[Rfam]
RNA sequence: UUUUUGAGAACCGUUUGAAUCACUACGUGAUUCAAAUGGUUCUCAAAAA
Numbered sequence: 001u002u003u004u005u006g007a008g009a010a011c012c013g014u015u016u017g018a019a020u021c022a023c024u025a026c027g028u029g030a031u032u033c034a035a036a037u038g039g040u041u042c043u044c045a046a047a048a049a
Base pairs, nucleotide, nucleotide: 004046005045006044007043008042009041010040011039012038013037014036015035016034017033018032019031020030021029022028
RNA: Plastid-ccsA-ndhD-1 3UTR RNA
Organism: Nelumbo nucifera